The record is a 131-nucleotide RNA sequence from Mesocricetus auratus, which matches "Small nucleolar RNA SNORA71" in Rfam.
Rfam's curators write: The members of this family belong to the H/ACA class of snoRNAs which bind a number of proteins (including dyskerin, Gar1p and Nop10p) to form snoRNP complexes. This class of snoRNAs are thought to guide the sites of modification of uridines to pseudouridines by forming direct base pairing interactions with substrate RNAs. This family includes U71 (SNORA71), ACA39 (SNORA39) and ACA60 (SNORA60).
The literature on the family includes a 1997 paper in Genes Dev by Ganot et al., "The family of box ACA small nucleolar RNAs is defined by an evolutionarily conserved secondary structure and ubiquitous sequence elements essential for RNA accumulation".
Rfam 15.1 lists 1,805 matches to the family in 606 species.
The family's consensus secondary structure was predicted with PFOLD.
A search with the family's covariance model found it, with a score of 100 bits.
It is annotated as an H/ACA-box small nucleolar RNA.
Rfam links the family to the GO terms RNA processing and nucleolus.
RNA sequence: CCCCGUAUUUGAAAGUGAUCAUGGGCUGCCCAUGCCCUGAUCAUUGAGACUUCAGGGAGAGGGUGCCGAAAGCUGUCCCUGUGUUUGGAAAGUCCACUUCUGUCCUGACCAAACCCGGGUGCUUUUGAACA
Numbered sequence: 001c002c003c004c005g006u007a008u009u010u011g012a013a014a015g016u017g018a019u020c021a022u023g024g025g026c027u028g029c030c031c032a033u034g035c036c037c038u039g040a041u042c043a044u045u046g047a048g049a050c051u052u053c054a055g056g057g058a059g060a061g062g063g064u065g066c067c068g069a070a071a072g073c074u075g076u077c078c079c080u081g082u083g084u085u086u087g088g089a090a091a092g093u094c095c096a097c098u099u100c101u102g103u104c105c106u107g108a109c110c111a112a113a114c115c116c117g118g119g120u121g122c123u124u125u126u127g128a129a130c131a
Stems, first nucleotide, its partner, number of pairs: 001057003005053001007051001009049001014045008023037004067127007083114005090106001092104001